[Rfam]
RNA: Y RNA
RNA sequence: GGCUGGUCUGAAGGUAGUGGGUUAUCUCAAUUGAUUGUUCAGUCAGUUACAGAUAGAACUUCCUUGUUCUACUCUUUCCCCCCUUCUCACUACUGCACUUGACUAAAAA
Dot-bracket structure: ...(((((.((..((((((((....................(..((......................))..)............))))))...))..)))))))....